This 138-nucleotide RNA from Pipistrellus kuhlii belongs to the Rfam family "Small nucleolar RNA SNORA29".
ACA29 is a member of the H/ACA class of snoRNA that guide the sites of modification of uridines to pseudouridines.
The base pairs follow the family's consensus structure, which was predicted with PFOLD.
Rfam classes the family as an H/ACA-box small nucleolar RNA.
A reference for the family is Huttenhofer et al. (2001), "RNomics: an experimental approach that identifies 201 candidates for novel, small, non-messenger RNAs in mouse", EMBO J.
The family is grouped with related families in Rfam's "SNORA20 clan".
Lineage of the source: Eukaryota > Deuterostomia > Teleostomi > Eutheria > Pipistrellus.
RNA sequence: UUUCCCUUUGACUACCACAUAUUCCCCUAACUAUAGAUUGCAGUGGAUAUGCUGAAGGGACAGGUUAUAAUUGCCAUGAUCUGAAAGGGAGGAUUUAUUUGUGUCCUCUACAUAUAUGAAAUGGUUGAACAAAAACAA
Dot-bracket structure: ...((((.......((((........................)))).........)))).............((((.............(.(..................).)........)))).............